Overview:
The family of this 105-nucleotide sequence from Paenisporosarcina sp. HGH0030 is "SAM riboswitch aptamer (S box leader)". The base pairs follow the family's consensus structure, which is taken from published work. The match comes from Rfam's covariance-model search (80 bits). The SAM riboswitch is found upstream of a number of genes which code for proteins involved in methionine or cysteine biosynthesis in Gram-positive bacteria.
[Rfam]
RNA sequence: UUCUUAUCAAGAGCAGGUGGAGGGACUAGCCCUAUGAAACCCGGCAACCGACUUACGCGAGUAGGCACGGUGCUAAUUCUUGCAGCAGUAGCUGACAGAUAAGAG
Numbered sequence: 001u002u003c004u005u006a007u008c009a010a011g012a013g014c015a016g017g018u019g020g021a022g023g024g025a026c027u028a029g030c031c032c033u034a035u036g037a038a039a040c041c042c043g044g045c046a047a048c049c050g051a052c053u054u055a056c057g058c059g060a061g062u063a064g065g066c067a068c069g070g071u072g073c074u075a076a077u078u079c080u081u082g083c084a085g086c087a088g089u090a091g092c093u094g095a096c097a098g099a100u101a102a103g104a105g
Base pairs, nucleotide, nucleotide: 001105002104003103004102005101006100007099008098013042016041017040018039022032023031024030026082028080029079043074044073045072046071048070049069050066052064053063078097083094084093085092086091